[Rfam]
RNA sequence: UGCCUAAACCUUAUUUAAGGCAUGGCAGAAAAACCUUGUAGGAAGUAAGCUCUUCGUCAGAGCGCCCUACAAGGUUAUCAUCCGAAAGGAUGGUAGGUAGCGUAAGCUAUC
Number, nucleotide and partner (000 for none) at each position: 001u027002g026003c025004c024005u000006a000007a000008a000009c020010c019011u018012u017013a000014u000015u000016u000017a012018a011019g010020g009021c000022a000023u000024g004025g003026c002027a001028g000029a000030a000031a000032a000033a000034c074035c073036u072037u071038g070039u069040a068041g067042g066043a000044a000045g000046u000047a000048a000049g063050c062051u061052c060053u059054u000055c000056g000057u000058c000059a053060g052061a051062g050063c049064g000065c000066c042067c041068u040069a039070c038071a037072a036073g035074g034075u000076u095077a094078u093079c092080a091081u090082c089083c088084g000085a000086a000087a000088g083089g082090a081091u080092g079093g078094u077095a076096g111097g110098u109099a108100g107101c106102g000103u000104a000105a000106g101107c100108u099109a098110u097111c096

Rfam assigns this 111-nucleotide RNA to the family "LOOT RNA". The sequence is in the family's curated seed alignment. The family's consensus secondary structure is taken from published work. The family's RNA type in Rfam is small RNA.